[Rfam]
RNA sequence: CUCCAAGGCAACCGUGGCUUUAGAUUGUUACUGUGUGGAUGUGAGUUGGUAACAGUCUACAGCCAUGGUUGGUUGGAGUGG
Numbered sequence: 001c002u003c004c005a006a007g008g009c010a011a012c013c014g015u016g017g018c019u020u021u022a023g024a025u026u027g028u029u030a031c032u033g034u035g036u037g038g039a040u041g042u043g044a045g046u047u048g049g050u051a052a053c054a055g056u057c058u059a060c061a062g063c064c065a066u067g068g069u070u071g072g073u074u075g076g077a078g079u080g081g
Stems, first nucleotide, its partner, number of pairs: 012068002015065004023057010

Rfam assigns this 81-nucleotide RNA sequence from Salvator merianae to the family "mir-132 microRNA precursor family". For this family Rfam cites "The developmental miRNA profiles of zebrafish as determined by small RNA cloning" (Chen et al., Genes Dev, 2005).